RNA sequence: GUGUUUUUCAUAGUAUUAGAUAUAAGAUUAAUUAAAAGAGAUUGUACCGGCUUGUGAUAAGUAAGUACGUCAGAAACAGAAGAGUCUGUUUUUUUGAUAAAUGUGUAAAAGCAUCGACUUUGAGAAGUCGGUGCUUUUUUGCU
Numbered sequence: 001g002u003g004u005u006u007u008u009c010a011u012a013g014u015a016u017u018a019g020a021u022a023u024a025a026g027a028u029u030a031a032u033u034a035a036a037a038g039a040g041a042u043u044g045u046a047c048c049g050g051c052u053u054g055u056g057a058u059a060a061g062u063a064a065g066u067a068c069g070u071c072a073g074a075a076a077c078a079g080a081a082g083a084g085u086c087u088g089u090u091u092u093u094u095u096g097a098u099a100a101a102u103g104u105g106u107a108a109a110a111g112c113a114u115c116g117a118c119u120u121u122g123a124g125a126a127g128u129c130g131g132u133g134c135u136u137u138u139u140u141g142c143u
Stems, first nucleotide, its partner, number of pairs: 044068004051061003075090006109136011
RNA: GibS sRNA
Organism: Bacteroides sp. CAG:189